RNA sequence: CCCUUAACUAUUAAAAGUUUCGUUUUGGUCCCUUAACUUACUUUUUGGUUUCGUUUUGGUCCAUUAACUAUUAAAAGUUUCGUUUUGGUCCCUUAACUUAUUUUUUUGUUUCAUUUUGGUCCCUUAACUCUUCCUCCGUCAACCACUUUGGUCCUUUAUGUUAGGAUGAAUGUAUUAGAGUUAAGGACCAAAACGAAAUCAAAAAAAAAGUUAAGUGACCAAAACGAAACCAAAAAGUAAGUUAAGGGACCAAAACGAAACUUUUAAUAGUUAAGGGA
Number, nucleotide and partner (000 for none) at each position: 001c000002c276003c275004u274005u273006a272007a271008c270009u000010a000011u000012u000013a000014a000015a000016a000017g000018u000019u000020u000021c000022g000023u255024u254025u253026u000027g251028g250029u249030c000031c247032c246033u245034u244035a243036a242037c241038u240039u239040a238041c237042u236043u235044u000045u233046u232047g231048g230049u229050u228051u227052c226053g225054u224055u223056u222057u221058g220059g219060u218061c000062c000063a000064u000065u000066a000067a000068c000069u000070a000071u000072u000073a000074a000075a000076a000077g000078u000079u000080u000081c000082g000083u000084u000085u000086u000087g000088g000089u000090c000091c000092c000093u000094u000095a000096a000097c000098u000099u000100a000101u000102u000103u000104u000105u000106u000107u000108g000109u000110u000111u000112c000113a000114u000115u000116u000117u000118g000119g000120u000121c000122c000123c000124u000125u000126a000127a000128c000129u000130c000131u000132u000133c000134c000135u000136c000137c000138g000139u000140c000141a000142a000143c000144c000145a000146c000147u000148u000149u000150g000151g000152u000153c000154c000155u000156u000157u000158a000159u000160g000161u000162u000163a000164g000165g000166a000167u000168g000169a000170a000171u000172g000173u000174a000175u000176u000177a000178g000179a000180g000181u000182u000183a000184a000185g000186g000187a000188c000189c000190a000191a000192a000193a000194c000195g000196a000197a000198a000199u000200c000201a000202a000203a000204a000205a000206a000207a000208a000209a000210g000211u000212u000213a000214a000215g000216u000217g000218a060219c059220c058221a057222a056223a055224a054225c053226g052227a051228a050229a049230c048231c047232a046233a045234a000235a043236a042237g041238u040239a039240a038241g037242u036243u035244a034245a033246g032247g031248g000249a029250c028251c027252a000253a025254a024255a023256c000257g000258a000259a000260a000261c000262u000263u000264u000265u000266a000267a000268u000269a000270g008271u007272u006273a005274a004275g003276g002277g000278a000

A member of the RNA family "MIR2655 microRNA precursor family" from Medicago truncatula, 278 nucleotides long. The match comes from Rfam's covariance-model search (171 bits).